[Rfam]
RNA sequence: AAAAGAAAGGAGCAAUAGUAUCCUCUUGAUAGAACAAGAAAAUAAUUAUUUCUCCUUUUU
Numbered sequence: 001a002a003a004a005g006a007a008a009g010g011a012g013c014a015a016u017a018g019u020a021u022c023c024u025c026u027u028g029a030u031a032g033a034a035c036a037a038g039a040a041a042a043u044a045a046u047u048a049u050u051u052c053u054c055c056u057u058u059u060u
Stems, first nucleotide, its partner, number of pairs: 006058007014050004020043002024039005